RNA sequence: CUUCCGGUGGGGCGCGAAGACCCCAUGGAGCUUUACAGCAGCCUGACGUUCGUGUGCGAUCACGAGUAUGAAGUGUAGGCAGGAGCCUUCGAAGCGGACUCGCCAGGGUCCGUGGAGGCGCCGAUGGGACACUGCCUUCUUGUGAUUGCCCACGUUACCCAGAAUAGGGGACAUCGUCAGGUGGGCUGUUCGGCUGGGGCGGUACGCCUUUGAAAAGGUAUCAAAGGCGCCCAAAGGUCACCUCAGGCGGGUCAGAAAUCCGCCGUAGAGUGACAAGGUCAAAUGGUGGCUUGACUGUGUUCCGCACAAUGAGGAACACAGGGGCGAAAGCCGGGCCUAGCGAACAGCAGUGUCCCCUUUGGUGGGGGCCUGCUCUGUCAGAAAAGUUACCCUGGGGGUAACAGAGUUGUCGCGGGCGAGAGCUCACAUCGACCCCGCGGUUUGCCACAUCGCUGUCGGCUCUUGCCAUCCUGGCUGUGCAGCAGCAGCCAAGGGUGGGGUUGUUCACCCAUUAAAGGCAAACGUGAGCUGGGUUCAGAACGUCGCGAGACAGUUUGGCGGCACCUACCGGAAGCGUG
Numbered sequence: 001c002u003u004c005c006g007g008u009g010g011g012g013c014g015c016g017a018a019g020a021c022c023c024c025a026u027g028g029a030g031c032u033u034u035a036c037a038g039c040a041g042c043c044u045g046a047c048g049u050u051c052g053u054g055u056g057c058g059a060u061c062a063c064g065a066g067u068a069u070g071a072a073g074u075g076u077a078g079g080c081a082g083g084a085g086c087c088u089u090c091g092a093a094g095c096g097g098a099c100u101c102g103c104c105a106g107g108g109u110c111c112g113u114g115g116a117g118g119c120g121c122c123g124a125u126g127g128g129a130c131a132c133u134g135c136c137u138u139c140u141u142g143u144g145a146u147u148g149c150c151c152a153c154g155u156u157a158c159c160c161a162g163a164a165u166a167g168g169g170g171a172c173a174u175c176g177u178c179a180g181g182u183g184g185g186c187u188g189u190u191c192g193g194c195u196g197g198g199g200c201g202g203u204a205c206g207c208c209u210u211u212g213a214a215a216a217g218g219u220a221u222c223a224a225a226g227g228c229g230c231c232c233a234a235a236g237g238u239c240a241c242c243u244c245a246g247g248c249g250g251g252u253c254a255g256a257a258a259u260c261c262g263c264c265g266u267a268g269a270g271u272g273a274c275a276a277g278g279u280c281a282a283a284u285g286g287u288g289g290c291u292u293g294a295c296u297g298u299g300u301u302c303c304g305c306a307c308a309a310u311g312a313g314g315a316a317c318a319c320a321g322g323g324g325c326g327a328a329a330g331c332c333g334g335g336c337c338u339a340g341c342g343a344a345c346a347g348c349a350g351u352g353u354c355c356c357c358u359u360u361g362g363u364g365g366g367g368g369c370c371u372g373c374u375c376u377g378u379c380a381g382a383a384a385a386g387u388u389a390c391c392c393u394g395g396g397g398g399u400a401a402c403a404g405a406g407u408u409g410u411c412g413c414g415g416g417c418g419a420g421a422g423c424u425c426a427c428a429u430c431g432a433c434c435c436c437g438c439g440g441u442u443u444g445c446c447a448c449a450u451c452g453c454u455g456u457c458g459g460c461u462c463u464u465g466c467c468a469u470c471c472u473g474g475c476u477g478u479g480c481a482g483c484a485g486c487a488g489c490c491a492a493g494g495g496u497g498g499g500g501u502u503g504u505u506c507a508c509c510c511a512u513u514a515a516a517g518g519c520a521a522a523c524g525u526g527a528g529c530u531g532g533g534u535u536c537a538g539a540a541c542g543u544c545g546c547g548a549g550a551c552a553g554u555u556u557g558g559c560g561g562c563a564c565c566u567a568c569c570g571g572a573a574g575c576g577u578g
Base pairs, nucleotide, nucleotide: 001574002573003572004571005570006569007568008567010566011565012564014562015561022396023395024394025393027392028391029388030387031386032385033384035189036188037187038186042181043180044179045178046177047176048175051154052153053152054151056149057148058147059146060145061144062143063142064141065140066139068137078136079135080134081133082132085119086118087117097110098109099108100107101106158169159168160167192205193203194202195201206228207227208226209225210224211223231335232334237290238289239288240287241286242285243269244268246264247263248262249261250260251259270280295321296320297319298318299317300316301315302314303313323332325330346374347373348372349371350370352369354368355367356366357365406445407444409443410440411439412438413437414436415435416434420430421429457532458530459529460528461527462524463521464520465519466518467517470495471494474489475488476487477486478485498510499509500508501507538556539555540554541553542551543550544549

Archaeal large subunit ribosomal RNA: a 578-nucleotide part of an RNA from uncultured euryarchaeote Alv-FOS5. NCBI's taxonomy places the organism under Archaea, Methanobacteriati, Methanobacteriota. The family's consensus secondary structure is taken from published work.